[Rfam]
RNA sequence: GGCACAGCGUUUGCUUGAGUGGAACCGGGGCGGCCAACGGCGGUCGCCCGACGCAACACGCCGC
Number, nucleotide and partner (000 for none) at each position: 001g000002g000003c000004a000005c000006a000007g000008c000009g000010u000011u000012u000013g000014c000015u000016u000017g000018a000019g000020u000021g000022g000023a000024a000025c000026c000027g000028g000029g048030g047031c046032g045033g044034c043035c042036a000037a000038c000039g000040g000041c000042g035043g034044u033045c032046g031047c030048c029049c000050g000051a000052c000053g000054c000055a000056a000057c000058a000059c000060g000061c000062c000063g000064c000